Overview: Group I catalytic intron: a 271-nucleotide sequence from Entomortierella chlamydospora. Group I catalytic introns are large self-splicing ribozymes. They catalyse their own excision from mRNA, tRNA and rRNA precursors in a wide range of organisms. The core secondary structure consists of 9 paired regions (P1-P9). These fold to essentially two domains - the P4-P6 domain (formed from the stacking of P5, P4, P6 and P6a helices) and the P3-P9 domain (formed from the P8, P3, P7 and P9 helices). The family's consensus secondary structure is taken from published work.

RNA sequence: UUCUUAGGAUUAGCGGGUGCUUAGUGCUCCUUAAAAUAGUAAUAUUUUAAAGCAAAUAGGGUGAAUUGCAAAAACAUCCAUUAUGAAAAUGGGCAAUUUGCAGCGAAGCUUAUUUCGACACAAUUAACUAUUUUAAUUUGAGAUAAGAACGUUCAACGACUAGAGAGUGAGUAAUGUCAACAAUAAUCUCUCCAAGAGUGCCCUACAUCCAAUAAAAACAAUAUAAUAAAAUUGGAUGAUGAAAUAGUCUAAGCCAAUAGGUAACUAUUGG
Numbered sequence: 001u002u003c004u005u006a007g008g009a010u011u012a013g014c015g016g017g018u019g020c021u022u023a024g025u026g027c028u029c030c031u032u033a034a035a036a037u038a039g040u041a042a043u044a045u046u047u048u049a050a051a052g053c054a055a056a057u058a059g060g061g062u063g064a065a066u067u068g069c070a071a072a073a074a075c076a077u078c079c080a081u082u083a084u085g086a087a088a089a090u091g092g093g094c095a096a097u098u099u100g101c102a103g104c105g106a107a108g109c110u111u112a113u114u115u116c117g118a119c120a121c122a123a124u125u126a127a128c129u130a131u132u133u134u135a136a137u138u139u140g141a142g143a144u145a146a147g148a149a150c151g152u153u154c155a156a157c158g159a160c161u162a163g164a165g166a167g168u169g170a171g172u173a174a175u176g177u178c179a180a181c182a183a184u185a186a187u188c189u190c191u192c193c194a195a196g197a198g199u200g201c202c203c204u205a206c207a208u209c210c211a212a213u214a215a216a217a218a219c220a221a222u223a224u225a226a227u228a229a230a231a232u233u234g235g236a237u238g239a240u241g242a243a244a245u246a247g248u249c250u251a252a253g254c255c256a257a258u259a260g261g262u263a264a265c266u267a268u269u270g271g
Stems, first nucleotide, its partner, number of pairs: 001026001003024002035046003057205004062200002067102006077093005103152002110145001116140003156250001158249005208236006256269005